[Rfam]
RNA sequence: UAAAUUGUAACAACACACAAGGCCUUGUUUAAGACCUGCUGUAAAAUUUUUGGAGACCCUGUCCUUCAUUGGGCAGGGA
Numbered sequence: 001u002a003a004a005u006u007g008u009a010a011c012a013a014c015a016c017a018c019a020a021g022g023c024c025u026u027g028u029u030u031a032a033g034a035c036c037u038g039c040u041g042u043a044a045a046a047u048u049u050u051u052g053g054a055g056a057c058c059c060u061g062u063c064c065u066u067c068a069u070u071g072g073g074c075a076g077g078g079a
Stems, first nucleotide, its partner, number of pairs: 020037003024033003057078008
Overview:
The family of this 79-nucleotide sequence from Caenorhabditis remanei is "SmY spliceosomal RNA". For this family Rfam cites "A novel family of C. elegans snRNPs contains proteins associated with trans-splicing" (MacMorris et al., RNA, 2007). It is one of the family's seed sequences. The family's consensus secondary structure is taken from published work.